[Rfam]
RNA sequence: AACGAAACUUUGCACAGUAGACCUAGUAAACCUCAGUAAGCAAAGUAUGGAUUGAUAGACAGCCCGAUUUCUGUACCUUUACCCAGAAAUAUGGGCGUCUUCCGUGCUGCUUACUGGAGAACUCUGUUCUCGCCUUUACUAGGAGGUGCUGUGCGUGCGGGAGGCGACCAUAUUUCAUUGUUCCCUCCUGCUUAUAGGAUCAUUGCUUUA
Numbered sequence: 001a002a003c004g005a006a007a008c009u010u011u012g013c014a015c016a017g018u019a020g021a022c023c024u025a026g027u028a029a030a031c032c033u034c035a036g037u038a039a040g041c042a043a044a045g046u047a048u049g050g051a052u053u054g055a056u057a058g059a060c061a062g063c064c065c066g067a068u069u070u071c072u073g074u075a076c077c078u079u080u081a082c083c084c085a086g087a088a089a090u091a092u093g094g095g096c097g098u099c100u101u102c103c104g105u106g107c108u109g110c111u112u113a114c115u116g117g118a119g120a121a122c123u124c125u126g127u128u129c130u131c132g133c134c135u136u137u138a139c140u141a142g143g144a145g146g147u148g149c150u151g152u153g154c155g156u157g158c159g160g161g162a163g164g165c166g167a168c169c170a171u172a173u174u175u176c177a178u179u180g181u182u183c184c185c186u187c188c189u190g191c192u193u194a195u196a197g198g199a200u201c202a203u204u205g206c207u208u209u210a
Base pairs, nucleotide, nucleotide: 012154013153014152015151016150017149018148019147022143023142024141025140026139027138034116035115036114037113038112039111040110041109044108045107046106047105048104049103050102051101057100058099059098060097062096063095064094065093066092067090068089069088070087071086072085073084117131118130119129120128121127122126133146134145135144157191158190159189160188161187162186163185164184166182167181169180170179
Record summary:
Rfam assigns this 210-nucleotide sequence from Pedobacter sp. BAL39 to the family "Pedo-repair RNA". Rfam's curators put it in the seed alignment. Rfam classes the family as a cis-regulatory element.